[Rfam]
RNA sequence: GUCAGGAGAUCUGAAUUGUUAUGCUGAUGCUCUGUGAGGUAUGACAGUUAACAGCAUGUUAGUGUGAUGGCA
Numbered sequence: 001g002u003c004a005g006g007a008g009a010u011c012u013g014a015a016u017u018g019u020u021a022u023g024c025u026g027a028u029g030c031u032c033u034g035u036g037a038g039g040u041a042u043g044a045c046a047g048u049u050a051a052c053a054g055c056a057u058g059u060u061a062g063u064g065u066g067a068u069g070g071c072a
Base pairs, nucleotide, nucleotide: 001071002070003069004068
Dot-bracket structure: ((((...............................................................)))).

Background: Small nucleolar RNA SNORD28: a 72-nucleotide RNA from Pteropus alecto. It is annotated as a C/D-box small nucleolar RNA. The source organism's lineage runs through Eukaryota, Bilateria, Teleostomi, Euteleostomi and Pteropus.